[Rfam]
The family of this 143-nucleotide sequence from Phyllobacterium myrsinacearum is "speF leader". Gene Ontology term of the family: regulation of gene expression. Rfam's curators write: This family is a putative regulatory RNA structure that is found upstream of the speF gene encoding ornithine decarboxylase in Agrobacterium tumefaciens and other alpha-proteobacteria. The literature on the family includes a 2012 paper in RNA Biol by del Val et al., "A survey of sRNA families in alpha-proteobacteria". It is annotated as a cis-regulatory leader. NCBI's taxonomy places the organism under Bacteria, Pseudomonadati, Pseudomonadota, Hyphomicrobiales, Phyllobacterium.
RNA sequence: UUUCGGCUGUCCAUAAGCCGGAAUUACUGAAGAGGCACACCUUCAUUGCCGGUAGUGCGGAUGGCUUCAUCCAAACCAAGGCAGACAAAGCGGAUCAACGCUGGCUUAGCGUAGAUCCAUCGCCGCAUGAACUUGUCCGUGUU
Number, nucleotide and partner (000 for none) at each position: 001u023002u022003u021004c020005g019006g018007c017008u016009g000010u000011c000012c000013a000014u000015a000016a008017g007018c006019c005020g004021g003022a002023a001024u000025u000026a000027c000028u000029g000030a000031a000032g000033a000034g050035g049036c048037a047038c000039a000040c000041c000042u000043u000044c000045a000046u000047u037048g036049c035050c034051g000052g000053u000054a000055g000056u000057g123058c122059g121060g000061a000062u000063g000064g000065c000066u000067u000068c000069a000070u000071c000072c000073a000074a000075a000076c084077c000078a000079a000080g000081g000082c000083a000084g076085a000086c000087a000088a000089a000090g000091c000092g000093g106094a000095u104096c103097a102098a000099c000100g000101c000102u097103g096104g095105c000106u093107u000108a000109g000110c000111g000112u000113a000114g000115a000116u000117c000118c000119a000120u000121c059122g058123c057124c000125g000126c000127a000128u000129g000130a000131a000132c000133u000134u000135g000136u000137c000138c000139g000140u000141g000142u000143u000